[Rfam]
This 61-nucleotide RNA sequence from Camphora micrantha belongs to the Rfam family "Plastid-psbA-4 3UTR RNA". It scores 57 bits against the family's covariance model. NCBI's taxonomy places the organism under Eukaryota, Streptophyta, Spermatophyta, Lauraceae, Camphora. The family is grouped with related families in Rfam's "Plastid-psbA 3UTR RNA clan". It is annotated as a cis-regulatory element. The family's consensus secondary structure was predicted with LocARNA. From the family's description: Plastid psbA-4 is a non-coding RNA (ncRNA) present in plastids. It was identified in inverted repeat sequences in the 3 prime untranslate region (3UTR) of photosystem II quinone-binding protein (psbA).
RNA sequence: AACCAAAUGGAUCAAUACCAAACUUCUUGUUCAAUUAAGAAGUUUGAUAUUGAUCCUUCAA
Dot-bracket structure: ......(.(((((((((...((.((((((......)))))).))...))))))))).)...